[Rfam]
RNA: Glutamine riboswitch aptamer (glnA leader)
RNA sequence: AUCGUUCAUCCUAACUUACAAGGACGGAAGUAGGCUUCAUGCUGAAGGAACGCGCU
Numbered sequence: 001a002u003c004g005u006u007c008a009u010c011c012u013a014a015c016u017u018a019c020a021a022g023g024a025c026g027g028a029a030g031u032a033g034g035c036u037u038c039a040u041g042c043u044g045a046a047g048g049a050a051c052g053c054g055c056u
Base pairs, nucleotide, nucleotide: 003052004051005050006049007048009024010023011022012021027053033043034042035041
Dot-bracket structure: ..(((((.((((........))))..[.....(((.....)))....)))))]...